[Rfam]
Glycine riboswitch aptamer: a 92-nucleotide RNA sequence from Salipiger aestuarii. This family represents the bacterial glycine riboswitch. A search with the family's covariance model found it, with a score of 54 bits. The source organism's lineage runs through Bacteria, Alphaproteobacteria, Rhodobacterales, Roseobacteraceae and Salipiger.

RNA sequence: CCAUCCACGAUGGGAGAACCGGCGCCGCAAGGCCCGGUGCCGAAGGAGCAACCGCCCCGGAAACUCUCAGGCUUCAGGACCGUCGUUGGGUC
Numbered sequence: 001c002c003a004u005c006c007a008c009g010a011u012g013g014g015a016g017a018a019c020c021g022g023c024g025c026c027g028c029a030a031g032g033c034c035c036g037g038u039g040c041c042g043a044a045g046g047a048g049c050a051a052c053c054g055c056c057c058c059g060g061a062a063a064c065u066c067u068c069a070g071g072c073u074u075c076a077g078g079a080c081c082g083u084c085g086u087u088g089g090g091u092c
Stems, first nucleotide, its partner, number of pairs: 007086007019037004039072003042068002046066003052060002